[Rfam]
RNA sequence: AAUAGGAAGAUGACAAAUCAGAUUUUUCCUCUUGAUUUUUAGCAUUUUUUGUUGAAUUUAAAUUUUUUCAGGAGGAAAAAACUAAAAAUUAGGAGGAAAAAUCUAAUUUAUCAUUCUCCUAUU
Numbered sequence: 001a002a003u004a005g006g007a008a009g010a011u012g013a014c015a016a017a018u019c020a021g022a023u024u025u026u027u028c029c030u031c032u033u034g035a036u037u038u039u040u041a042g043c044a045u046u047u048u049u050u051g052u053u054g055a056a057u058u059u060a061a062a063u064u065u066u067u068u069c070a071g072g073a074g075g076a077a078a079a080a081a082c083u084a085a086a087a088a089u090u091a092g093g094a095g096g097a098a099a100a101a102u103c104u105a106a107u108u109u110a111u112c113a114u115u116c117u118c119c120u121a122u123u
Stems, first nucleotide, its partner, number of pairs: 001123007009115005015109004020104008029095011041083002045079004
Notes: MIR7504 microRNA precursor family: a 123-nucleotide RNA sequence from Gossypium aridum. Lineage of the source: Eukaryota > Embryophyta > malvids > Malvoideae > Gossypium. The match comes from Rfam's covariance-model search (92 bits).